[Rfam]
RNA sequence: AGCUGUUCCCCUCUGGAGGUUUUAAUUACCUUCACAACUACAAGGGCCCAAGUUUUUCUUGUGGCCCUCUUUUUUUGCCUGG
Numbered sequence: 001a002g003c004u005g006u007u008c009c010c011c012u013c014u015g016g017a018g019g020u021u022u023u024a025a026u027u028a029c030c031u032u033c034a035c036a037a038c039u040a041c042a043a044g045g046g047c048c049c050a051a052g053u054u055u056u057u058c059u060u061g062u063g064g065c066c067c068u069c070u071u072u073u074u075u076u077g078c079c080u081g082g
Stems, first nucleotide, its partner, number of pairs: 008018001010016002044067005049061004